[Rfam]
RNA sequence: UGCCAUCGUUAAGUCAAGGCUCCUUUCUGUGUCCUCCACUUGUUGGAGGCGCAGUUUUUCUCCCAUGAAAGGAAUCUGUUACAACUUUGGCAAAUCAAUCCUUUCCUGCUCUCGUCUGGUCCGAGUUUUUCGGGCCUUUCGUUUGACAAAUCUCGUAUUGAGAGAAGUCGUUUAAGGGUUUGGAGUGUUUCGUUUGAGUUGAAAAAUGGGCGGCUUGUGCUCUGGCGCAAGCAGUUAUCAGUACCGUUUUUCUUAGUAAUGAUUCACACACUA
Number, nucleotide and partner (000 for none) at each position: 001u000002g000003c090004c089005a088006u000007c000008g000009u000010u000011a000012a000013g000014u000015c000016a000017a077018g076019g075020c000021u073022c072023c071024u070025u069026u068027c000028u000029g052030u051031g050032u049033c000034c000035u000036c000037c000038a000039c000040u000041u000042g000043u000044u000045g000046g000047a000048g000049g032050c031051g030052c029053a000054g000055u000056u000057u000058u000059u000060c000061u000062c000063c000064c000065a000066u000067g000068a026069a025070a024071g023072g022073a021074a000075u019076c018077u017078g000079u000080u000081a000082c000083a000084a000085c000086u000087u000088u005089g004090g003091c000092a000093a000094a000095u000096c000097a000098a000099u000100c000101c183102u182103u000104u000105c000106c178107u000108g000109c000110u148111c000112u146113c145114g144115u000116c141117u000118g136119g135120u134121c133122c132123g131124a130125g000126u000127u000128u000129u000130u124131c123132g122133g121134g120135c119136c118137u000138u000139u000140c000141g116142u000143u000144u114145g113146a112147c000148a110149a000150a000151u163152c162153u161154c160155g159156u000157a000158u000159u155160g154161a153162g152163a151164g000165a000166a000167g000168u000169c000170g000171u000172u000173u000174a000175a000176g000177g000178g106179u000180u000181u000182g102183g101184a000185g267186u266187g265188u000189u000190u262191c261192g260193u259194u000195u000196g000197a000198g000199u000200u000201g252202a251203a250204a249205a000206a000207u246208g245209g244210g000211c000212g000213g232214c231215u230216u229217g228218u227219g226220c000221u000222c000223u000224g000225g000226c219227g218228c217229a216230a215231g214232c213233a000234g000235u000236u000237a000238u000239c000240a000241g000242u000243a000244c209245c208246g207247u000248u000249u204250u203251u202252c201253u000254u000255a000256g000257u000258a000259a193260u192261g191262a190263u000264u000265c187266a186267c185268a000269c000270a000271c000272u000273a000